[Rfam]
RNA sequence: CCAAAGGCUCUUUUAAGAGCCACCCAAUUGAUCUUAAGAGGGUGUAG
Numbered sequence: 001c002c003a004a005a006g007g008c009u010c011u012u013u014u015a016a017g018a019g020c021c022a023c024c025c026a027a028u029u030g031a032u033c034u035u036a037a038g039a040g041g042g043u044g045u046a047g
Base pairs, nucleotide, nucleotide: 006021007020008019009018010017011016
Shown here is a 47-nucleotide RNA from Catagonus wagneri, a member of the family "Histone 3' UTR stem-loop".
It scores 40 bits against the family's covariance model.
The mRNAs of metazoan histone genes lack a poly-A tail. 3' end processing occurs at a site between a highly conserved stem-loop (modelled by this family) and a purine rich region around 20 nts downstream (the histone downstream element, or HDE). The stem-loop is bound by a 31 kDa stem-loop binding protein (SLBP - also termed the histone hairpin binding protein, or HBP). Together with U7 snRNA binding of the HDE, SLBP binding nucleate s the formation of the processing complex. The histone 3' UTR stem-loop is also involved in nucleocytoplasmic transport of the mRNA, and in stability regulation and translation efficiency in the cytoplasm.
Its family is annotated with mRNA 3'-end processing by stem-loop binding and cleavage in the Gene Ontology.